[Rfam]
RNA sequence: CGAUGUCUGAAGGGAAGGGGCCUUUAGUACGAGAGGAACGGGGGCUCGUGGCUUCUGGUUUACCGAUUGUCCGGCAGGGCAUUUGUCGGGUAGCCACGCCAUACGCGGAUAAAAGCUGAAAGCAUCUAAGCUUGAAGCCGCCCCUGAAAAUAGACAUCGUUAUCAGGUCUCUCCUAAAAGAGGAGUUUGAUAGAGCUGGGAUGUAAGUAUCAAGUCUUUUGGCGAGAUAUUAAGUCCACAGCCACUAAUCGACCGAAUG
Numbered sequence: 001c002g003a004u005g006u007c008u009g010a011a012g013g014g015a016a017g018g019g020g021c022c023u024u025u026a027g028u029a030c031g032a033g034a035g036g037a038a039c040g041g042g043g044g045c046u047c048g049u050g051g052c053u054u055c056u057g058g059u060u061u062a063c064c065g066a067u068u069g070u071c072c073g074g075c076a077g078g079g080c081a082u083u084u085g086u087c088g089g090g091u092a093g094c095c096a097c098g099c100c101a102u103a104c105g106c107g108g109a110u111a112a113a114a115g116c117u118g119a120a121a122g123c124a125u126c127u128a129a130g131c132u133u134g135a136a137g138c139c140g141c142c143c144c145u146g147a148a149a150a151u152a153g154a155c156a157u158c159g160u161u162a163u164c165a166g167g168u169c170u171c172u173c174c175u176a177a178a179a180g181a182g183g184a185g186u187u188u189g190a191u192a193g194a195g196c197u198g199g200g201a202u203g204u205a206a207g208u209a210u211c212a213a214g215u216c217u218u219u220u221g222g223c224g225a226g227a228u229a230u231u232a233a234g235u236c237c238a239c240a241g242c243c244a245c246u247a248a249u250c251g252a253c254c255g256a257a258u259g
Base pairs, nucleotide, nucleotide: 001159002158003157004156005155006154007153008152011145012144013143014142017047018046019045021043022042023041024040048102049101050100051099052098056096057095058094063089064088065087066086067085068081069080070079071078072077106140107139108138113133114132115131116130117129166254167253168252169251171185172184173183174182191247192246193245195242196241197240198239199237200236201235207230208229209228210227211226214223
Rfam assigns this 259-nucleotide part of an RNA from Thermoplasmatales archaeon E-plasma to the family "Archaeal large subunit ribosomal RNA". The family's consensus secondary structure is taken from published work. The match comes from Rfam's covariance-model search (2733 bits). Its family is annotated with ribosome and structural constituent of ribosome in the Gene Ontology.